A member of the RNA family "Plant small nucleolar RNA U3" from Striga asiatica, 216 nucleotides long. The source organism's lineage runs through Eukaryota, Euphyllophyta, asterids, lamiids and Striga. About the family: Small nucleolar RNAs (snoRNAs) are involved in the processing and modification of rRNA in the nucleolus. There are two main classes of snoRNAs: the box C/D class, and the box H/ACA class. U3 snoRNA is a member of the box C/D class. For this family Rfam cites "The uRNA database" (Zwieb, Nucleic Acids Res, 1997).
RNA sequence: AGGACCUUACUUCAACAGGAUUUGUUCUGUUCUAUAGGCUCGUACCUCUCUAUCCAUGAGUUGUAUAAGGAGACAAUAUAUAAAGUCUGGUGGAUGAACAAUGGCUGCCCAGCCAGAGCGUGGUUAACAGACCCCUUGGCUCAGGCUUGGGUCCAUUGGGUAAGUGGAGGAUUGUUCUUGAUGAGCCAAGAUGGCGUGUCAGCUGUGUGACAGACU
Numbered sequence: 001a002g003g004a005c006c007u008u009a010c011u012u013c014a015a016c017a018g019g020a021u022u023u024g025u026u027c028u029g030u031u032c033u034a035u036a037g038g039c040u041c042g043u044a045c046c047u048c049u050c051u052a053u054c055c056a057u058g059a060g061u062u063g064u065a066u067a068a069g070g071a072g073a074c075a076a077u078a079u080a081u082a083a084a085g086u087c088u089g090g091u092g093g094a095u096g097a098a099c100a101a102u103g104g105c106u107g108c109c110c111a112g113c114c115a116g117a118g119c120g121u122g123g124u125u126a127a128c129a130g131a132c133c134c135c136u137u138g139g140c141u142c143a144g145g146c147u148u149g150g151g152u153c154c155a156u157u158g159g160g161u162a163a164g165u166g167g168a169g170g171a172u173u174g175u176u177c178u179u180g181a182u183g184a185g186c187c188a189a190g191a192u193g194g195c196g197u198g199u200c201a202g203c204u205g206u207g208u209g210a211c212a213g214a215c216u
Stems, first nucleotide, its partner, number of pairs: 001043001003040001005038003014031007049075001051073001053071003057067002085215005104203004109198001112195004117176004127165002131161004137155003140151004178189003